Shown here is a 115-nucleotide RNA sequence from Subdoligranulum variabile, a member of the family "THF (Tetrahydrofolate) riboswitch aptamer". The source organism's lineage runs through Bacteria, Bacillati, Bacillota, Eubacteriales and Subdoligranulum variabile. Tetrahydrofolate (THF) riboswitch was first reported for Ames et al. as an RNA motif in 5' untranslated (5'-UTR)regions of folate transport and biosynthesis genes in Firmicutes genomes.

RNA sequence: UGCAGAGUAGGGAUCCGCGCGUGGGGCAGUGGCCCCGAAGUGCCUGACCGACGGGGAGUUGUGGCAGGACGAAGUGACCGGAAGGUCCGCGGUGCGCAUCCCGCAUCCCGCUGCU
Numbered sequence: 001u002g003c004a005g006a007g008u009a010g011g012g013a014u015c016c017g018c019g020c021g022u023g024g025g026g027c028a029g030u031g032g033c034c035c036c037g038a039a040g041u042g043c044c045u046g047a048c049c050g051a052c053g054g055g056g057a058g059u060u061g062u063g064g065c066a067g068g069a070c071g072a073a074g075u076g077a078c079c080g081g082a083a084g085g086u087c088c089g090c091g092g093u094g095c096g097c098a099u100c101c102c103g104c105a106u107c108c109c110g111c112u113g114c115u
Stems, first nucleotide, its partner, number of pairs: 002114004010102005016096004020091003040070002043068004048064003054108003058104001074088001076087003